[Rfam]
Rfam assigns this 335-nucleotide sequence from Coemansia sp. RSA 2050 to the family "Metazoan signal recognition particle RNA". The literature on the family includes a 2002 paper in Curr Opin Struct Biol by Wild et al., "Towards the structure of the mammalian signal recognition particle". Its family is annotated with SRP-dependent cotranslational protein targeting to membrane, signal sequence recognition and signal recognition particle, endoplasmic reticulum targeting in the Gene Ontology. The source organism's lineage runs through Eukaryota, Kickxellomycota, Kickxellomycotina, Kickxellomycetes and Coemansia.
RNA sequence: GUUGGGUGGGUCUGACUCCUGCCUGUAGCCCGUGCGGGGACCAAUUAGGAGCGCAGGGAGCAUGGGAUAUGAAGGCCAGUCCCGCCUAAAGCCGCCAUUGGGCGGCUUCCAGAGCCGCAUGCACACGGCUUGGGGGUGUCCACUUGGAGUCCGGUGUUUGGCAUUGGCACGCUGGCGUAGGCCUGGGCGUGCUCAAGGCUAUUGAAUAGCUGGGCAAAGCGUGAGGCUGGCAACAGAGCAACGAAAACUGGCAGCACUGGUUCAGUCAAGGGACUGCAUCUCCUUGUCACUGCCUCUGGAUGGGGCUGGCCGACCAUGCGACCUGCGCUUUUUUU
Numbered sequence: 001g002u003u004g005g006g007u008g009g010g011u012c013u014g015a016c017u018c019c020u021g022c023c024u025g026u027a028g029c030c031c032g033u034g035c036g037g038g039g040a041c042c043a044a045u046u047a048g049g050a051g052c053g054c055a056g057g058g059a060g061c062a063u064g065g066g067a068u069a070u071g072a073a074g075g076c077c078a079g080u081c082c083c084g085c086c087u088a089a090a091g092c093c094g095c096c097a098u099u100g101g102g103c104g105g106c107u108u109c110c111a112g113a114g115c116c117g118c119a120u121g122c123a124c125a126c127g128g129c130u131u132g133g134g135g136g137u138g139u140c141c142a143c144u145u146g147g148a149g150u151c152c153g154g155u156g157u158u159u160g161g162c163a164u165u166g167g168c169a170c171g172c173u174g175g176c177g178u179a180g181g182c183c184u185g186g187g188c189g190u191g192c193u194c195a196a197g198g199c200u201a202u203u204g205a206a207u208a209g210c211u212g213g214g215c216a217a218a219g220c221g222u223g224a225g226g227c228u229g230g231c232a233a234c235a236g237a238g239c240a241a242c243g244a245a246a247a248c249u250g251g252c253a254g255c256a257c258u259g260g261u262u263c264a265g266u267c268a269a270g271g272g273a274c275u276g277c278a279u280c281u282c283c284u285u286g287u288c289a290c291u292g293c294c295u296c297u298g299g300a301u302g303g304g305g306c307u308g309g310c311c312g313a314c315c316a317u318g319c320g321a322c323c324u325g326c327g328c329u330u331u332u333u334u335u
Stems, first nucleotide, its partner, number of pairs: 001041003004024007029038003047332011060319006074311011086299003090295002132283008140272002143270005149263001151260007159201004164196004168191006174183003202208001209252005220243003227236003